[Rfam]
RNA: Small nucleolar RNA SNORA73 family
Organism: Crocodylus porosus
RNA sequence: CUAACGCAGACAUCCGGAGAGGUUGCUCUCGGCUCUGUCCGUGUGGCAUACGGGAGUGUAGGCCUUCGGGCUCCAUGACGUAUAGUCCCCUUCCACAAUGUUGGAGAACAAGCCGGGCCUCUGGUCUGCAGCCUGCAUAUUCCUAUGGCUUCUCUGAGUCUUUGGACCAUGACAGAGGAGACAAACCAUGCAGGAAACAGCA
Numbered sequence: 001c002u003a004a005c006g007c008a009g010a011c012a013u014c015c016g017g018a019g020a021g022g023u024u025g026c027u028c029u030c031g032g033c034u035c036u037g038u039c040c041g042u043g044u045g046g047c048a049u050a051c052g053g054g055a056g057u058g059u060a061g062g063c064c065u066u067c068g069g070g071c072u073c074c075a076u077g078a079c080g081u082a083u084a085g086u087c088c089c090c091u092u093c094c095a096c097a098a099u100g101u102u103g104g105a106g107a108a109c110a111a112g113c114c115g116g117g118c119c120u121c122u123g124g125u126c127u128g129c130a131g132c133c134u135g136c137a138u139a140u141u142c143c144u145a146u147g148g149c150u151u152c153u154c155u156g157a158g159u160c161u162u163u164g165g166a167c168c169a170u171g172a173c174a175g176a177g178g179a180g181a182c183a184a185a186c187c188a189u190g191c192a193g194g195a196a197a198c199a200g201c202a
Base pairs, nucleotide, nucleotide: 001104002103003102004101005100006099009039010038011037012036014032015031016030018029019028020027021026043096044095045094046093052089053088054087055086056083058081059080061076132194133193134192135191136190137189138188149180150179151178152177153176154175158167159166160165